[Rfam]
RNA sequence: CUACAAGUAUCUUAGGGACCUGCCAGCUGUGCCAGUUUCCCUUCCUAGCCACAGAAGAGCAUAUUCUUGGUUAUUGGCAAAGCUGUCACCAUUUAAUUGCUAUCAGAUUCUGUCUUGCACAAGUAACAUUC
Numbered sequence: 001c002u003a004c005a006a007g008u009a010u011c012u013u014a015g016g017g018a019c020c021u022g023c024c025a026g027c028u029g030u031g032c033c034a035g036u037u038u039c040c041c042u043u044c045c046u047a048g049c050c051a052c053a054g055a056a057g058a059g060c061a062u063a064u065u066c067u068u069g070g071u072u073a074u075u076g077g078c079a080a081a082g083c084u085g086u087c088a089c090c091a092u093u094u095a096a097u098u099g100c101u102a103u104c105a106g107a108u109u110c111u112g113u114c115u116u117g118c119a120c121a122a123g124u125a126a127c128a129u130u131c
Base pairs, nucleotide, nucleotide: 002055007050015041016040017039018038020035021034022033024031068128069127071125074122075121076120077118078117079116080115083106084105085104088101090099091098

Small nucleolar RNA SNORA24: a 131-nucleotide RNA from Otolemur garnettii. ACA24 is a member of the H/ACA class of snoRNA that guide the sites of modification of uridines to pseudouridines. NCBI's taxonomy places the organism under Eukaryota, Metazoa, Dipnotetrapodomorpha, Mammalia, Otolemur. The family's RNA type in Rfam is H/ACA-box small nucleolar RNA. Its family is annotated with RNA processing and nucleolus in the Gene Ontology.